[Rfam]
RNA sequence: AUAAGAACAGAAGUUGUGAAACUUCUUAUUUGAAUAGUUUAGUUAAGUCUAGUUUAGUUUUUGUGUUGUGAUACUCCUGCUGAAAGUGUUCAUCAGGAGUGUCUUUUUU
Numbered sequence: 001a002u003a004a005g006a007a008c009a010g011a012a013g014u015u016g017u018g019a020a021a022c023u024u025c026u027u028a029u030u031u032g033a034a035u036a037g038u039u040u041a042g043u044u045a046a047g048u049c050u051a052g053u054u055u056a057g058u059u060u061u062u063g064u065g066u067u068g069u070g071a072u073a074c075u076c077c078u079g080c081u082g083a084a085a086g087u088g089u090u091c092a093u094c095a096g097g098a099g100u101g102u103c104u105u106u107u108u109u
Stems, first nucleotide, its partner, number of pairs: 001064005010025006036055002039052004071102009081092003
The record is a 109-nucleotide RNA sequence from Phocaeicola coprocola, which matches "Bacteroides sRNA BTnc049" in Rfam.
On this family, see Ryan et al., Nat Commun 2020: "A high-resolution transcriptome map identifies small RNA regulation of metabolism in the gut microbe Bacteroides thetaiotaomicron".
Rfam classes the family as a small RNA.
Taxonomically the source falls in Phocaeicola coprocola (Bacteria, Pseudomonadati, Bacteroidales, Phocaeicola).